[Rfam]
Nucleotides: 214
Stems, first nucleotide, its partner, number of pairs: 002040002005037001006035001009032003015027004049064001051062001053061002075214003079210001094202009104192002108166003118154003124148004128143005169188008
Number, partner (000 for none) and nucleotide at each position: 001000a002040a003039g004000g005037u006035u007000a008000u009032a010031c011030u012000u013000u014000c015027a016026g017025g018024g019000a020000u021000u022000a023000u024018u025017u026016c027015u028000c029000u030011a031010g032009u033000u034000g035006g036000u037005g038000a039003c040002u041000g042000g043000a044000g045000a046000a047000g048000g049064g050000u051062g052000g053061u054060u055000g056000u057000a058000a059000a060054a061053g062051c063000c064049u065000g066000g067000c068000c069000u070000u071000g072000c073000u074000a075214a076213c077212u078000a079210u080000g081000a082000u083000g084000a085000a086000g087000a088000a089000c090000u091000g092000c093000a094202g095201u096200g097199u098198u099197u100196c101195u102194u103000c104192c105191u106000g107000a108166g109165c110164a111000u112000g113000a114000c115000a116000a117000u118154g119153g120152c121000u122000g123000a124148g125147a126146g127145u128143g129142c130141u131140g132139u133000u134000c135000u136000g137000u138000g139132g140131c141130a142129g143128u144000u145127g146126c147125u148124u149000u150000c151000u152120g153119c154118u155000g156000u157000a158000g159000a160000a161000a162000a163000g164110u165109g166108u167000c168000u169188u170187g171186u172185u173184c174183u175182u176181c177000c178000u179000g180000g181176g182175a183174a184173g185172a186171g187170c188169a189000g190000g191105g192104g193000a194102a195101a196100g197099a198098a199097a200096u201095a202094c203000a204000g205000u206000c207000u208000g209000a210079g211000g212077g213076g214075u
Rfam assigns this 214-nucleotide RNA sequence from Gopherus evgoodei to the family "Small nucleolar RNA U3".
Small nucleolar RNAs (snoRNAs) are involved in the processing and modification of rRNA in the nucleolus. There are two main classes of snoRNAs: the box C/D class, and the box H/ACA class. U3 snoRNA is a member of the box C/D class. Indeed, the box C/D element is a subset of the six short sequence elements found in all U3 snoRNAs, namely boxes A, A', B, C, C', and D. The U3 snoRNA secondary structure is characterised by a small 5' domain (with boxes A and A'), and a larger 3' domain (with boxes B, C, C', and D), the two domains being linked by a single-stranded hinge. Boxes B and C form the B/C motif, which appears to be exclusive to U3 snoRNAs, and boxes C' and D form the C'/D motif. The latter is functionally similar to the C/D motifs found in other snoRNAs. The 5' domain and the hinge region act as a pre-rRNA-binding domain. The 3' domain has conserved protein-binding sites. Both the box B/C and box C'/D motifs are sufficient for nuclear retention of U3 snoRNA. The box C'/D motif is also necessary for nucleolar localisation, stability and hyper-methylation of U3 snoRNA. Both box B/C and C'/D motifs are involved in specific protein interactions and are necessary for the rRNA processing functions of U3 snoRNA.
The family has 87 seed sequences and 19,072 matches in Rfam 15.1.
It is annotated as a C/D-box small nucleolar RNA.